Rfam assigns this 315-nucleotide sequence from Methanococcoides methylutens to the family "Archaeal signal recognition particle RNA". Clan: SRP clan. By type it is a non-coding RNA gene. Lineage of the source: Archaea > Methanobacteriota > Methanomicrobia > Methanosarcinales > Methanococcoides methylutens. A search with the family's covariance model found it, with a score of 219 bits. Rfam links the family to the GO terms SRP-dependent cotranslational protein targeting to membrane, signal sequence recognition and signal recognition particle, plasma membrane targeting. Pairs were carried over by alignment from the consensus structure, which is taken from published work.
RNA sequence: UGACGGGCUAGUCUGGGUAGGCCGGCGUUACCUGUAACCCGAAAUCGCCGAUAUGCGGGAGACGAAGCCAAAAGAAGUUGUUCUGAUCAUUUCCAAACCUGUGAUCUCAACUGCGAAGCCCCGUCCUGCUUGGAUGGUGUUGGUAGAAGGACUAAUUGGAGAAUUGGCCCUCUUAUCUUCAUCGUGGGAACCAGUCGAGGCCCGGAAGGGAGCAGACCUACCAUGGACACUUGUCGCUUGUAGGGCUGCGGGGUGGAGGCGAGGUCUCAGAUCAUUUGGUUGUGUGAGGGACAGCAACUCACGGCGUGCCCGUCA
Number, nucleotide and partner (000 for none) at each position: 001u315002g314003a313004c312005g311006g310007g309008c308009u000010a000011g063012u062013c061014u060015g033016g032017g031018u030019a029020g028021g000022c000023c000024g000025g000026c000027g000028u020029u019030a018031c017032c016033u015034g000035u000036a000037a000038c059039c058040c057041g056042a000043a054044a000045u000046c000047g000048c000049c000050g000051a000052u000053a000054u043055g000056c041057g040058g039059g038060a014061g013062a012063c011064g000065a000066a000067g305068c304069c303070a000071a000072a000073a299074g298075a000076a000077g295078u294079u293080g292081u291082u289083c288084u287085g000086a000087u000088c284089a283090u282091u000092u000093c279094c278095a277096a276097a275098c000099c270100u269101g268102u000103g266104a265105u264106c263107u262108c261109a000110a000111c258112u257113g000114c000115g000116a000117a000118g254119c253120c252121c251122c250123g249124u248125c244126c243127u242128g241129c240130u000131u000132g237133g235134a234135u233136g232137g230138u229139g228140u000141u000142g177143g176144u175145a174146g173147a000148a171149g170150g169151a000152c167153u166154a165155a164156u163157u162158g000159g000160a000161g000162a157163a156164u155165u154166g153167g152168c000169c150170c149171u148172c000173u146174u145175a144176u143177c142178u000179u000180c000181a000182u226183c225184g224185u223186g222187g221188g000189a000190a000191c000192c000193a000194g217195u216196c215197g000198a000199g000200g000201c210202c209203c208204g000205g000206a000207a000208g203209g202210g201211a000212g000213c000214a000215g196216a195217c194218c000219u000220a000221c187222c186223a185224u184225g183226g182227a000228c139229a138230c137231u000232u136233g135234u134235c133236g000237c132238u000239u000240g129241u128242a127243g126244g125245g000246c000247u000248g124249c123250g122251g121252g120253g119254u118255g000256g000257a112258g111259g000260c000261g108262a107263g106264g105265u104266c103267u000268c101269a100270g099271a000272u000273c000274a000275u097276u096277u095278g094279g093280u000281u000282g090283u089284g088285u000286g000287a084288g083289g082290g000291a081292c080293a079294g078295c077296a000297a000298c074299u073300c000301a000302c000303g069304g068305c067306g000307u000308g008309c007310c006311c005312g004313u003314c002315a001